[Rfam]
RNA sequence: AGACAACAUAUUGCUCCUACUCGUAUAAUUUUGAGAAUAUGGCUCAAGAGUCUCUACCGGGCAACCGUAAAUUGCCCGACUACGAGUGAAAGUGUACCUAGG
Numbered sequence: 001a002g003a004c005a006a007c008a009u010a011u012u013g014c015u016c017c018u019a020c021u022c023g024u025a026u027a028a029u030u031u032u033g034a035g036a037a038u039a040u041g042g043c044u045c046a047a048g049a050g051u052c053u054c055u056a057c058c059g060g061g062c063a064a065c066c067g068u069a070a071a072u073u074g075c076c077c078g079a080c081u082a083c084g085a086g087u088g089a090a091a092g093u094g095u096a097c098c099u100a101g102g
Stems, first nucleotide, its partner, number of pairs: 018088008029049007058078007
Shown here is a 102-nucleotide RNA sequence from Thermosinus carboxydivorans, a member of the family "Purine riboswitch aptamer". Lineage of the source: Bacteria > Bacillota > Negativicutes > Selenomonadales > Thermosinus carboxydivorans. Pairs were carried over by alignment from the consensus structure, which is taken from published work. It is one of the family's seed sequences.